[Rfam]
RNA sequence: GGGUCGGCUAUAGCCCAGCGGUUACUUCGGCUUUAUCGCAAUGUGCCUUCAUGGCAUCCCAACAGGGGUUCGAUACUGCGGGCACCCCUGGCCCAUUC
Numbered sequence: 001g002g003g004u005c006g007g008c009u010a011u012a013g014c015c016c017a018g019c020g021g022u023u024a025c026u027u028c029g030g031c032u033u034u035a036u037c038g039c040a041a042u043g044u045g046c047c048u049u050c051a052u053g054g055c056a057u058c059c060c061a062a063c064a065g066g067g068g069u070u071c072g073a074u075a076c077u078g079c080g081g082g083c084a085c086c087c088c089u090g091g092c093c094c095a096u097u098c
Stems, first nucleotide, its partner, number of pairs: 002093006013083004018079004027073004

The family of this 98-nucleotide RNA from Corythaixoides concolor is "Vault RNA". Rfam 15.1 lists 2,873 matches to the family in 431 species. Lineage of the source: Eukaryota > Gnathostomata > Euteleostomi > Dinosauria > Corythaixoides. A reference for the family is Stadler et al. (2009), "Evolution of Vault RNAs", Mol Biol Evol.